[Rfam]
RNA sequence: GCCCGCACGAUCUUCAGUGGUCUGGAGUGCAGGCUUCAAACCUGUAGCCGUCGAGAGACGGAGUGGUUCAAUUCCACCUUGUGGGC
Dot-bracket structure: (((((((.(..((((((....))))))((((((.......)))))).(((((....))))).((((.......))))).)))))))
RNA: Selenocysteine transfer RNA